[Rfam]
RNA sequence: GGGUGCGUGACUGCAUAGGGCACAACGCAGGUUAAAGCAAAGCAUUGGUCGGGCCGCCAAUG
Numbered sequence: 001g002g003g004u005g006c007g008u009g010a011c012u013g014c015a016u017a018g019g020g021c022a023c024a025a026c027g028c029a030g031g032u033u034a035a036a037g038c039a040a041a042g043c044a045u046u047g048g049u050c051g052g053g054c055c056g057c058c059a060a061u062g
Stems, first nucleotide, its partner, number of pairs: 005028004012022001043062007

Rfam assigns this 62-nucleotide RNA to the family "nhaA-I RNA". About the family: Acidobacteria, Alphaproteobacteria, Betaproteobacteria and Gammaproteobacteria, Verrucomicrobia, cand. division NC10. The family's consensus secondary structure is taken from published work.